[Rfam]
RNA: Bacteroidales small SRP
Organism: Thermaurantimonas aggregans
RNA sequence: UGCAACCGGGCAAGUCCCAUACAACCAGCUCCUCGUGAAUCCCCCAGGUCAGGAAUGAAGCAAGGGUGGCGGGUCGCAGCGGUGUGAUAUGGUCAGCUUGCCCUUUC
Number, nucleotide and partner (000 for none) at each position: 001u000002g000003c000004a000005a000006c000007c000008g103009g102010g101011c100012a099013a098014g097015u096016c000017c092018c091019a090020u089021a088022c086023a085024a083025c082026c000027a000028g000029c000030u000031c000032c000033u000034c000035g000036u000037g000038a000039a000040u000041c000042c000043c000044c000045c000046a000047g000048g000049u000050c000051a000052g000053g000054a000055a000056u000057g000058a000059a000060g000061c000062a000063a000064g000065g000066g000067u000068g000069g000070c000071g000072g000073g000074u000075c000076g000077c000078a000079g000080c000081g000082g025083u024084g000085u023086g022087a000088u021089a020090u019091g018092g017093u000094c000095a000096g015097c014098u013099u012100g011101c010102c009103c008104u000105u000106u000107c000